This 94-nucleotide sequence from Robiginitalea biformata belongs to the Rfam family "SAM-I/IV (S-adenosyl methionine) riboswitch aptamer". Clan: SAM clan. Rfam 15.1 lists 567 matches to the family in 508 species. The base pairs follow the family's consensus structure, which is taken from published work. The sequence is in the family's curated seed alignment.
[Rfam]
RNA sequence: UUCCUGCAUCAGGAACGCUAAGGCGCGUACCAACCGAGCAUAAAAGCCACGGUGGUUCAGAAUGCGGACGGUCGUCAAAAAAAUAAUUCCUUUC
Numbered sequence: 001u002u003c004c005u006g007c008a009u010c011a012g013g014a015a016c017g018c019u020a021a022g023g024c025g026c027g028u029a030c031c032a033a034c035c036g037a038g039c040a041u042a043a044a045a046g047c048c049a050c051g052g053u054g055g056u057u058c059a060g061a062a063u064g065c066g067g068a069c070g071g072u073c074g075u076c077a078a079a080a081a082a083a084u085a086a087u088u089c090c091u092u093u094c
Stems, first nucleotide, its partner, number of pairs: 006065004015028001016025003029056003034052003038047002042088002067076003